[Rfam]
RNA sequence: GUGACAGAAGAGAGUGAGCACACACGGUGUUUUCUUGCAUGAUCAUGCUUGAAUCUCUGUGUGCUCACUCUCUAUCUGUCAC
Numbered sequence: 001g002u003g004a005c006a007g008a009a010g011a012g013a014g015u016g017a018g019c020a021c022a023c024a025c026g027g028u029g030u031u032u033u034c035u036u037g038c039a040u041g042a043u044c045a046u047g048c049u050u051g052a053a054u055c056u057c058u059g060u061g062u063g064c065u066c067a068c069u070c071u072c073u074a075u076c077u078g079u080c081a082c
Stems, first nucleotide, its partner, number of pairs: 001082008010072012023059002
RNA: mir-156 microRNA precursor family
Organism: Rhodamnia argentea